[Rfam]
RNA sequence: UGUCUCCUCCAACUCUUCUUGAAUUGGAUUUAAGCCCGCUCUCGUAGCGGGCUUUUUUUU
Numbered sequence: 001u002g003u004c005u006c007c008u009c010c011a012a013c014u015c016u017u018c019u020u021g022a023a024u025u026g027g028a029u030u031u032a033a034g035c036c037c038g039c040u041c042u043c044g045u046a047g048c049g050g051g052c053u054u055u056u057u058u059u060u
Base pairs, nucleotide, nucleotide: 008028009027010026011025012024013021033053034052035051036050037049038048039047040046
Betaproteobacteria toxic small RNA: a 60-nucleotide RNA sequence from Noviherbaspirillum saxi. The base pairs follow the family's consensus structure, which was predicted with WAR. About the family: Overexpression in amino aid rich medium attenuates growth, suggesting role in repressing amino acid intake and metabolism.